[Rfam]
RNA sequence: CUGCAGGGUGCCUAGGGAUCCGCCGGCCGCGUGCCGGGGCCGGACCGAGAGGUGCCGCCGGGCCGGCAGAUUCCGCCCCGGUACACGGCGGGACAAAAGCCCGGGAGAG
Numbered sequence: 001c002u003g004c005a006g007g008g009u010g011c012c013u014a015g016g017g018a019u020c021c022g023c024c025g026g027c028c029g030c031g032u033g034c035c036g037g038g039g040c041c042g043g044a045c046c047g048a049g050a051g052g053u054g055c056c057g058c059c060g061g062g063c064c065g066g067c068a069g070a071u072u073c074c075g076c077c078c079c080g081g082u083a084c085a086c087g088g089c090g091g092g093a094c095a096a097a098a099g100c101c102c103g104g105g106a107g108a109g
Stems, first nucleotide, its partner, number of pairs: 007056006015046002020043002022040001023037005057082006064075003084104001086107001090102003
This 109-nucleotide RNA sequence from Histidinibacterium lentulum belongs to the Rfam family "Guanidine-I riboswitch aptamer".